A member of the RNA family "Cia-dependent small RNA csRNA1" from Streptococcus intermedius, 89 nucleotides long.
NCBI's taxonomy places the organism under Bacteria, Bacillota, Bacilli, Lactobacillales, Streptococcus intermedius.
The base pairs follow the family's consensus structure.

RNA sequence: AUCAGAUGAAGACCUCCUAACUUUAUUUGAUAGAAAUCCUAAACUUUUUCAUAAUAAUCUCCUGAAAGCCAUCGAAAGGUGGCUUUUUU
Numbered sequence: 001a002u003c004a005g006a007u008g009a010a011g012a013c014c015u016c017c018u019a020a021c022u023u024u025a026u027u028u029g030a031u032a033g034a035a036a037u038c039c040u041a042a043a044c045u046u047u048u049u050c051a052u053a054a055u056a057a058u059c060u061c062c063u064g065a066a067a068g069c070c071a072u073c074g075a076a077a078g079g080u081g082g083c084u085u086u087u088u089u
Stems, first nucleotide, its partner, number of pairs: 001031011065086009